A member of the RNA family "Fungal signal recognition particle RNA" from Dothidotthia symphoricarpi, 292 nucleotides long. A search with the family's covariance model found it, with a score of 132 bits. On this family, see Wild et al., Curr Opin Struct Biol 2002: "Towards the structure of the mammalian signal recognition particle". The organism belongs to Dothidotthia symphoricarpi, within Eukaryota. By type it is a non-coding RNA gene. Gene Ontology terms of the family: signal recognition particle, plasma membrane targeting, SRP-dependent cotranslational protein targeting to membrane, signal sequence recognition and signal recognition particle, endoplasmic reticulum targeting.
[Rfam]
RNA sequence: ACCUGUAGCGGGUCUCCACCAGAAGGCCGACCGUCAUCCACGCCUACCUCCCUGCCACCACCCUUGCAGGAGCCCAGUUCGAGUCCCGUGGCGUCCGGAAUUUUCGUAAAAACAAGAUUCUUUCACCCACUCACGCAGGUAACUCGUGACUUGCUGGGCGGACCUAAGCCAUGGACGCAAUCUGAUGAGGGAAGAAAUUCUGCAAUCGGGCGUCCACCAUGGGACGGCGGUGUUGGAUUACUCCCGUGAGGGUUGGGAGGCUGGCGUUGGGCUGGUCGUGUCUACUGGUAUU
Numbered sequence: 001a002c003c004u005g006u007a008g009c010g011g012g013u014c015u016c017c018a019c020c021a022g023a024a025g026g027c028c029g030a031c032c033g034u035c036a037u038c039c040a041c042g043c044c045u046a047c048c049u050c051c052c053u054g055c056c057a058c059c060a061c062c063c064u065u066g067c068a069g070g071a072g073c074c075c076a077g078u079u080c081g082a083g084u085c086c087c088g089u090g091g092c093g094u095c096c097g098g099a100a101u102u103u104u105c106g107u108a109a110a111a112a113c114a115a116g117a118u119u120c121u122u123u124c125a126c127c128c129a130c131u132c133a134c135g136c137a138g139g140u141a142a143c144u145c146g147u148g149a150c151u152u153g154c155u156g157g158g159c160g161g162a163c164c165u166a167a168g169c170c171a172u173g174g175a176c177g178c179a180a181u182c183u184g185a186u187g188a189g190g191g192a193a194g195a196a197a198u199u200c201u202g203c204a205a206u207c208g209g210g211c212g213u214c215c216a217c218c219a220u221g222g223g224a225c226g227g228c229g230g231u232g233u234u235g236g237a238u239u240a241c242u243c244c245c246g247u248g249a250g251g252g253u254u255g256g257g258a259g260g261c262u263g264g265c266g267u268u269g270g271g272c273u274g275g276u277c278g279u280g281u282c283u284a285c286u287g288g289u290a291u292u
Base pairs, nucleotide, nucleotide: 001013002012003011018289019288020287021286022285024283028278029277030276031275032274033273035269043264044263047260048259049258050257051256052255061252062251063250064249065248066247067246069244070243071242072241074236075235076234077233078232079230080229081228083225084224085223086222087221088220089219090218091217119162120160122158123157124156125155127153129151131149132148133147134146135145137144138143164168172216173215174214175213176212177211178210182209183208184207185206186205191200192199193198